[Rfam]
RNA sequence: UAUCAUACUGUGCUCCGAGCCUCUCUGCCUAAAGCUUUUAGCCAUGGCAGGCAGGCCGUUGGGUAAAGUGGGAAACAACUUUGCCUCCCGUGGUUGGAAAGGAGCUUGAUCUUAAGGUGA
Numbered sequence: 001u002a003u004c005a006u007a008c009u010g011u012g013c014u015c016c017g018a019g020c021c022u023c024u025c026u027g028c029c030u031a032a033a034g035c036u037u038u039u040a041g042c043c044a045u046g047g048c049a050g051g052c053a054g055g056c057c058g059u060u061g062g063g064u065a066a067a068g069u070g071g072g073a074a075a076c077a078a079c080u081u082u083g084c085c086u087c088c089c090g091u092g093g094u095u096g097g098a099a100a101g102g103a104g105c106u107u108g109a110u111c112u113u114a115a116g117g118u119g120a
Base pairs, nucleotide, nucleotide: 003114012105013104014103015102016101019056020055021054022053024051025050026049027048028047029046034042035041036040061086062085063084064083065082066081067080068079069078071076087097088096